A member of the RNA family "Iron response element I" from Tupaia belangeri, 35 nucleotides long.

RNA sequence: UGGUUUUCUGCUUCAACGGUGCUUGAAUGGAACCG
Number, nucleotide and partner (000 for none) at each position: 001u035002g034003g033004u032005u031006u000007u030008c029009u000010g028011c000012u027013u026014c025015a024016a023017c021018g000019g000020u000021g017022c000023u016024u015025g014026a013027a012028u010029g008030g007031a005032a004033c003034c002035g001

A reference for the family is Hentze et al. (1987), "Identification of the iron-responsive element for the translational regulation of human ferritin mRNA", Science.
Rfam 15.1 lists 6,829 matches to the family in 599 species.
The organism belongs to Tupaia belangeri, within Eukaryota.